RNA sequence: CAUGUGCUAUGAUUGUAACAAUUCCUCGUACUGAAUGCCAAAAGCAUGACAGACUAUCUCUACCCAUAGAAUAUGAGCACA
Numbered sequence: 001c002a003u004g005u006g007c008u009a010u011g012a013u014u015g016u017a018a019c020a021a022u023u024c025c026u027c028g029u030a031c032u033g034a035a036u037g038c039c040a041a042a043a044g045c046a047u048g049a050c051a052g053a054c055u056a057u058c059u060c061u062a063c064c065c066a067u068a069g070a071a072u073a074u075g076a077g078c079a080c081a
Stems, first nucleotide, its partner, number of pairs: 003081004
The record is an 81-nucleotide sequence from Physcomitrium patens, which matches "Small nucleolar RNA snoR8a" in Rfam.
It scores 74 bits against the family's covariance model.
For this family Rfam cites "Multiple snoRNA gene clusters from Arabidopsis" (Brown et al., RNA, 2001).
Rfam classes the family as a C/D-box small nucleolar RNA.
The source organism's lineage runs through Eukaryota, Viridiplantae, Bryophytina, Funariidae and Physcomitrium.